The family of this 98-nucleotide RNA sequence from [Enterobacter] lignolyticus is "STnc250 Hfq binding RNA".
RNA sequence: GAAGGCAUGCUUCGUAAAUGAUUUUCUGUAGUAAACCACUGCGCUAAAUAAAGAGCAUGAUAAGAAAAGGCGACCGACAGGUCGCCUUUUUUGUGUCU
Numbered sequence: 001g002a003a004g005g006c007a008u009g010c011u012u013c014g015u016a017a018a019u020g021a022u023u024u025u026c027u028g029u030a031g032u033a034a035a036c037c038a039c040u041g042c043g044c045u046a047a048a049u050a051a052a053g054a055g056c057a058u059g060a061u062a063a064g065a066a067a068a069g070g071c072g073a074c075c076g077a078c079a080g081g082u083c084g085c086c087u088u089u090u091u092u093g094u095g096u097c098u
Stems, first nucleotide, its partner, number of pairs: 001013004023035003063092013

It is annotated as a small RNA. On this family, see Pfeiffer et al., Mol Microbiol 2007: "A small non-coding RNA of the invasion gene island (SPI-1) represses outer membrane protein synthesis from the Salmonella core genome". Pairs were carried over by alignment from the consensus structure, which was predicted with WAR. The match comes from Rfam's covariance-model search (51 bits). The source organism's lineage runs through Bacteria, Pseudomonadati, Pseudomonadota, Gammaproteobacteria and [Enterobacter] lignolyticus.